A member of the RNA family "Bacterial RNase P class B" from Guptibacillus hwajinpoensis, 398 nucleotides long. Gene Ontology terms of the family: tRNA processing, dimeric ribonuclease P complex and ribonuclease P activity. The family is grouped with related families in Rfam's "RNaseP clan". By type it is a ribozyme.
[Rfam]
RNA sequence: ACGUUCGGGUGAUCGCUGUAUAUUGCAUUUAAGCAGUAUAUAGAGGAAAGUCCAUGCUCGCACGAUCUGAGAUGAUCGUAGUGUUCGUGCCUGAUGAAACAAUAAGUCAGGGUAGUCCAUUUUUGGGCUAACGGCGGGGAAACGGCCUAAGUCCUUAACGGAUAUGGCCCGAAUACUCUGAAAGUGCCACAGUGACGAAGUCUUAAUGGAAACAUUAAGAGUGGAACGAGGUAAACCCCACGAGCGAGAAACCCAAAUUAUGGUAGGGGAGCUUUCUCGAAGGAAUUGAACGGAGAGAGAGCCAGGUGGCGAGGACGCACCUGGAGAUAGAUGAUUACCACCUGAGUACGAGGGGAGACCCGUUCGCAGUACGAUGGAACAGAACAUGGCUUACAGAA
Numbered sequence: 001a002c003g004u005u006c007g008g009g010u011g012a013u014c015g016c017u018g019u020a021u022a023u024u025g026c027a028u029u030u031a032a033g034c035a036g037u038a039u040a041u042a043g044a045g046g047a048a049a050g051u052c053c054a055u056g057c058u059c060g061c062a063c064g065a066u067c068u069g070a071g072a073u074g075a076u077c078g079u080a081g082u083g084u085u086c087g088u089g090c091c092u093g094a095u096g097a098a099a100c101a102a103u104a105a106g107u108c109a110g111g112g113u114a115g116u117c118c119a120u121u122u123u124u125g126g127g128c129u130a131a132c133g134g135c136g137g138g139g140a141a142a143c144g145g146c147c148u149a150a151g152u153c154c155u156u157a158a159c160g161g162a163u164a165u166g167g168c169c170c171g172a173a174u175a176c177u178c179u180g181a182a183a184g185u186g187c188c189a190c191a192g193u194g195a196c197g198a199a200g201u202c203u204u205a206a207u208g209g210a211a212a213c214a215u216u217a218a219g220a221g222u223g224g225a226a227c228g229a230g231g232u233a234a235a236c237c238c239c240a241c242g243a244g245c246g247a248g249a250a251a252c253c254c255a256a257a258u259u260a261u262g263g264u265a266g267g268g269g270a271g272c273u274u275u276c277u278c279g280a281a282g283g284a285a286u287u288g289a290a291c292g293g294a295g296a297g298a299g300a301g302c303c304a305g306g307u308g309g310c311g312a313g314g315a316c317g318c319a320c321c322u323g324g325a326g327a328u329a330g331a332u333g334a335u336u337a338c339c340a341c342c343u344g345a346g347u348a349c350g351a352g353g354g355g356a357g358a359c360c361c362g363u364u365c366g367c368a369g370u371a372c373g374a375u376g377g378a379a380c381a382g383a384a385c386a387u388g389g390c391u392u393a394c395a396g397a398a
Stems, first nucleotide, its partner, number of pairs: 004398003007394001008339007016043010048392003052389005057248005062079006085243005090111006112132001113130006133238002136178003144169004151163003184236002186232003201220008252268003272301007302324006341377002346372004
Dot-bracket structure: ...(((((((((((.((((((((((........))))))))))....[[[.[[[[[(((((((((((......)))))).....(((((((((((..........))))))(((((((......)))))).)((.(((.....((((...(((.......)))..))))......))).....(((((............((((((((....)))))))).........)))..))))))))))))))...(((...........)))...(((((((................)))))))((((((...........))))))........))))))).((...((((...................))))...)).......]]]]]]]].).)))